Rfam assigns this 159-nucleotide RNA sequence from Sneathiella litorea to the family "6S / SsrS RNA".
Rfam's curators write: E. coli 6S RNA was the first non coding RNA to be sequenced, but its function was unknown until recently. It consists of 184 nucleotides that fold into an extended hairpin structure with a large single-stranded internal bulge.
It scores 55 bits against the family's covariance model.
The organism belongs to Sneathiella, within Bacteria.
For this family Rfam cites "6S RNA regulates E. coli RNA polymerase activity" (Wassarman and Storz, Cell, 2000).
Pairs were carried over by alignment from the consensus structure, which is taken from published work.
[Rfam]
RNA sequence: GUUGCACUGACUCGUGCGUUAGACGAAUGAUAUCCUGGGGCCAAUAACGAAAUCCCGGGAGCUGAUCCCUGACUGGACCGUGGUCCUACUAUAUCGGCGCCCACCUGACUUGUCAGGCCACAGCGAUUUCCACGCGUCGACGGCUAUGUUGGUGCAGCA
Dot-bracket structure: .(((((((((((.((.(((............((((.(.((((..............(((.((((((...((..................)).)))))).))).............)))).).).)))............))))).).))))))))))..